[Rfam]
RNA: Vertebrate telomerase RNA
Organism: Ptilonorhynchus violaceus
RNA sequence: CCGUGCCGGGGUGGGCAGGCCCUGCGGCUGACUAACCCUAAUGGCUGCUGCGCCCCUCACGCCCGCCCGCUGUUUUACUGCUGACUUUCAGCGGGCGAAGGGAGCGGCCCGGGGGGCGGAGGGGUAGAAGGGUUCCGGCGUCAAAAAACGUCAGCGAGGGGGAUCCUCACCCCGGCCCACAUUGGGGUCCCCGUCCUUCUCCCGCAGCUGGAGAUGCUCCCGCCGUCGCCCCGCGCGGAGGCCGCGGUCGGCCGGCUCAGCGCCACUGCCGCCGCGAAGAGCUCGGCUCUGUCAGCCUCGGCGGCGGCCGGGACUCGGACGGCAGGCCCGCCCACACUGGGCAGCCGGGGGACCCCAAUAGAACAAAACGGGCGCGGCGCCGCCGGGCUGGGCAGCCGCGGCUCCCUCAGACAUGGGGUGCGCGGCCGGCGCCGCCCCGACACCC
Numbered sequence: 001c002c003g004u005g006c007c008g009g010g011g012u013g014g015g016c017a018g019g020c021c022c023u024g025c026g027g028c029u030g031a032c033u034a035a036c037c038c039u040a041a042u043g044g045c046u047g048c049u050g051c052g053c054c055c056c057u058c059a060c061g062c063c064c065g066c067c068c069g070c071u072g073u074u075u076u077a078c079u080g081c082u083g084a085c086u087u088u089c090a091g092c093g094g095g096c097g098a099a100g101g102g103a104g105c106g107g108c109c110c111g112g113g114g115g116g117c118g119g120a121g122g123g124g125u126a127g128a129a130g131g132g133u134u135c136c137g138g139c140g141u142c143a144a145a146a147a148a149c150g151u152c153a154g155c156g157a158g159g160g161g162g163a164u165c166c167u168c169a170c171c172c173c174g175g176c177c178c179a180c181a182u183u184g185g186g187g188u189c190c191c192c193g194u195c196c197u198u199c200u201c202c203c204g205c206a207g208c209u210g211g212a213g214a215u216g217c218u219c220c221c222g223c224c225g226u227c228g229c230c231c232c233g234c235g236c237g238g239a240g241g242c243c244g245c246g247g248u249c250g251g252c253c254g255g256c257u258c259a260g261c262g263c264c265a266c267u268g269c270c271g272c273c274g275c276g277a278a279g280a281g282c283u284c285g286g287c288u289c290u291g292u293c294a295g296c297c298u299c300g301g302c303g304g305c306g307g308c309c310g311g312g313a314c315u316c317g318g319a320c321g322g323c324a325g326g327c328c329c330g331c332c333c334a335c336a337c338u339g340g341g342c343a344g345c346c347g348g349g350g351g352a353c354c355c356c357a358a359u360a361g362a363a364c365a366a367a368a369c370g371g372g373c374g375c376g377g378c379g380c381c382g383c384c385g386g387g388c389u390g391g392g393c394a395g396c397c398g399c400g401g402c403u404c405c406c407u408c409a410g411a412c413a414u415g416g417g418g419u420g421c422g423c424g425g426c427c428g429g430c431g432c433c434g435c436c437c438c439g440a441c442a443c444c445c
Stems, first nucleotide, its partner, number of pairs: 005176011017164001020162004052105002055102002064097009080155006086148003182358007218313005224307001227303004243276005249271004254264003278290004370437004376433006396425005403418004